[Rfam]
RNA sequence: GCCUGGAUAGUUGUUAGAGCAUCUGAUUUUUAAUCUGAGGGUCCAGGGUUCAAGUCCCUGUCUAGGCA
Numbered sequence: 001g002c003c004u005g006g007a008u009a010g011u012u013g014u015u016a017g018a019g020c021a022u023c024u025g026a027u028u029u030u031u032a033a034u035c036u037g038a039g040g041g042u043c044c045a046g047g048g049u050u051c052a053a054g055u056c057c058c059u060g061u062c063u064a065g066g067c068a
Stems, first nucleotide, its partner, number of pairs: 001067007010020003022038002025035002044060005
Rfam assigns this 68-nucleotide RNA sequence from Scleropages formosus to the family "tRNA". The family's consensus secondary structure is taken from published work. Taxonomically the source falls in Scleropages (Eukaryota, Deuterostomia, Craniata, Osteoglossomorpha). A search with the family's covariance model found it, with a score of 47 bits.